[Rfam]
This 75-nucleotide sequence from Branchiostoma floridae belongs to the Rfam family "mir-216 microRNA precursor family".
The family is grouped with related families in Rfam's "mir-216 clan".
Lineage of the source: Eukaryota > Opisthokonta > Deuterostomia > Cephalochordata > Branchiostoma.
Rfam links the family to the GO terms RISC complex and miRNA-mediated post-transcriptional gene silencing.
The sequence is in the family's curated seed alignment.
The base pairs follow the family's consensus structure, which was predicted with WAR.
RNA sequence: UGGUUGUGUAAUCUCAGCUGGCAACUGUGAGUCUAACUUCACAUCCUCACGGUGCAAGCUGGGAUCGCUCAAACU
Numbered sequence: 001u002g003g004u005u006g007u008g009u010a011a012u013c014u015c016a017g018c019u020g021g022c023a024a025c026u027g028u029g030a031g032u033c034u035a036a037c038u039u040c041a042c043a044u045c046c047u048c049a050c051g052g053u054g055c056a057a058g059c060u061g062g063g064a065u066c067g068c069u070c071a072a073a074c075u
Stems, first nucleotide, its partner, number of pairs: 004072003009067001011065007023053001026051006